[Rfam]
RNA: Fluoride riboswitch aptamer (crcB RNA motif)
Organism: Paraburkholderia saeva
RNA sequence: GAAUGCAGUGGAGAUGGCAUUCCUCCCCGAACCGCCGGUCUAGCCCGGCUGAUGAUGCCUACGAGUUC
Numbered sequence: 001g002a003a004u005g006c007a008g009u010g011g012a013g014a015u016g017g018c019a020u021u022c023c024u025c026c027c028c029g030a031a032c033c034g035c036c037g038g039u040c041u042a043g044c045c046c047g048g049c050u051g052a053u054g055a056u057g058c059c060u061a062c063g064a065g066u067u068c
Base pairs, nucleotide, nucleotide: 010026011025012024013023016059017058018057019056020055021054034049035048036047037046